[Rfam]
RNA sequence: GAUUAUCCGUAAACUAUAGUUGCGGCUUUGGUUGGCGACAACCAUCGAAAACUUAUUUAAUUUCGGGAACACCUAAACGAGUAAUGUCGUAGGCAAUCCGAAGCGAAGCCUCUACGGAGGAACGUUCAACGACUAGUCGAGAGACGUAGCCUGUAAGCACAGGCGAAACAAUAAGCGUCCUUCAUGGACGAUGAUAUAGUCUAAACUCGGUAGAAAUAUCGAG
Numbered sequence: 001g002a003u004u005a006u007c008c009g010u011a012a013a014c015u016a017u018a019g020u021u022g023c024g025g026c027u028u029u030g031g032u033u034g035g036c037g038a039c040a041a042c043c044a045u046c047g048a049a050a051a052c053u054u055a056u057u058u059a060a061u062u063u064c065g066g067g068a069a070c071a072c073c074u075a076a077a078c079g080a081g082u083a084a085u086g087u088c089g090u091a092g093g094c095a096a097u098c099c100g101a102a103g104c105g106a107a108g109c110c111u112c113u114a115c116g117g118a119g120g121a122a123c124g125u126u127c128a129a130c131g132a133c134u135a136g137u138c139g140a141g142a143g144a145c146g147u148a149g150c151c152u153g154u155a156a157g158c159a160c161a162g163g164c165g166a167a168a169c170a171a172u173a174a175g176c177g178u179c180c181u182u183c184a185u186g187g188a189c190g191a192u193g194a195u196a197u198a199g200u201c202u203a204a205a206c207u208c209g210g211u212a213g214a215a216a217u218a219u220c221g222a223g
Stems, first nucleotide, its partner, number of pairs: 005027001007025006031042003052175004057170001062102006072093004103125002109119001111117001129202001131201005178188003208221005